[Rfam]
RNA sequence: AUAAAUGAGGCAUCCCCACCAAGGAGGUGCCCAAUUCGCGGUCAUAUGUCUUGGGAGGAUAAGAUCUUAGGCGCGCCGAAAGACGCAGCCCCCGCUUCAGGGAAAAAGAUCACGCGAUAACUUAAACAAGGCUUCAGGCCUUGUUUUUUUUU
Numbered sequence: 001a002u003a004a005a006u007g008a009g010g011c012a013u014c015c016c017c018a019c020c021a022a023g024g025a026g027g028u029g030c031c032c033a034a035u036u037c038g039c040g041g042u043c044a045u046a047u048g049u050c051u052u053g054g055g056a057g058g059a060u061a062a063g064a065u066c067u068u069a070g071g072c073g074c075g076c077c078g079a080a081a082g083a084c085g086c087a088g089c090c091c092c093c094g095c096u097u098c099a100g101g102g103a104a105a106a107a108g109a110u111c112a113c114g115c116g117a118u119a120a121c122u123u124a125a126a127c128a129a130g131g132c133u134u135c136a137g138g139c140c141u142u143g144u145u146u147u148u149u150u151u152u
Stems, first nucleotide, its partner, number of pairs: 003152003011029004016024001037116004048060004063111005070090003073086003091102003125145008
Description:
The record is a 152-nucleotide RNA from Pseudohoeflea suaedae, which matches "Alphaproteobacterial sRNA ar9" in Rfam. A search with the family's covariance model found it, with a score of 103 bits. On this family, see del Val et al., RNA Biol 2012: "A survey of sRNA families in alpha-proteobacteria".